[Rfam]
RNA sequence: UCCCGCUUUUCCUCCCUGAGCGGGGCCUUGAUGUGUGACAGCAAAUAGGCUUACCACCCCAGCCCUCGAGCUGGGGUUUUUUUU
Dot-bracket structure: .((((((...........))))))((((...((........))...))))......(((((((......)))))))........
The family of this 84-nucleotide RNA from Rhodoferax ferrireducens is "Burkholderia RNA 7 (anti-hemB)". The family's consensus secondary structure is taken from published work. The literature on the family includes a 2012 paper in BMC Genomics by Khoo et al., "Computational discovery and RT-PCR validation of novel Burkholderia conserved and Burkholderia pseudomallei unique sRNAs". The sequence is in the family's curated seed alignment. The family's RNA type in Rfam is small RNA. The source organism's lineage runs through Bacteria, Pseudomonadati, Pseudomonadota, Rhodoferax and Rhodoferax ferrireducens. This RNA motif was identified by computational search in b-proteobacteria Burkholderia. Co-purified with Hfq, expression confirmed by Northern blot.